RNA sequence: AAGAACACGCAGGGGAGUUCCAACCGAGGAACUGAGAGGCGAAUAGCAGCAUGUCUGCAGUGUCGCGACCCUUUGAACCUGACCCAGUUGAUACUGGCGUAGGAAGCUAGGAUCGCGUCGCU
Numbered sequence: 001a002a003g004a005a006c007a008c009g010c011a012g013g014g015g016a017g018u019u020c021c022a023a024c025c026g027a028g029g030a031a032c033u034g035a036g037a038g039g040c041g042a043a044u045a046g047c048a049g050c051a052u053g054u055c056u057g058c059a060g061u062g063u064c065g066c067g068a069c070c071c072u073u074u075g076a077a078c079c080u081g082a083c084c085c086a087g088u089u090g091a092u093a094c095u096g097g098c099g100u101a102g103g104a105a106g107c108u109a110g111g112a113u114c115g116c117g118u119c120g121c122u
Stems, first nucleotide, its partner, number of pairs: 006110001009107002011072004017032005039066004078103004084097004